This 82-nucleotide sequence from Cyanoderma ruficeps belongs to the Rfam family "mir-190 microRNA precursor family".
The literature on the family includes a 2006 paper in Nucleic Acids Res by Kloosterman et al., "Cloning and expression of new microRNAs from zebrafish".

RNA sequence: AAUACACUAAUCACAUGUAUGGAUUAUGGUUAUUUCCUUUGUAAAGGAAAUAACCAUAAUCCAUACAUGUGAUUAGUGUAUU
Numbered sequence: 001a002a003u004a005c006a007c008u009a010a011u012c013a014c015a016u017g018u019a020u021g022g023a024u025u026a027u028g029g030u031u032a033u034u035u036c037c038u039u040u041g042u043a044a045a046g047g048a049a050a051u052a053a054c055c056a057u058a059a060u061c062c063a064u065a066c067a068u069g070u071g072a073u074u075a076g077u078g079u080a081u082u
Stems, first nucleotide, its partner, number of pairs: 005078005012071015028055007